[Rfam]
Annotation:
The record is an 88-nucleotide RNA sequence from Pseudomonas aeruginosa, which matches "DUF3800-VII RNA" in Rfam. It is one of the family's seed sequences. Lineage of the source: Bacteria > Pseudomonadati > Pseudomonadales > Pseudomonadaceae > Pseudomonas aeruginosa.
RNA sequence: UGCAGGCAAGCGUGAGGUUUGUAGAGGUUGCUGGAGACAGCGACAGCCCUUGACGGGCGGGAUCCUCGAACUCAGGGCCUGCUUUUUU
Numbered sequence: 001u002g003c004a005g006g007c008a009a010g011c012g013u014g015a016g017g018u019u020u021g022u023a024g025a026g027g028u029u030g031c032u033g034g035a036g037a038c039a040g041c042g043a044c045a046g047c048c049c050u051u052g053a054c055g056g057g058c059g060g061g062a063u064c065c066u067c068g069a070a071c072u073c074a075g076g077g078c079c080u081g082c083u084u085u086u087u088u
Base pairs, nucleotide, nucleotide: 002082003081004080005079006078007077011075013074014073015072016071022069024067025066026065027044028043029042030041031040032039033038047057048056049055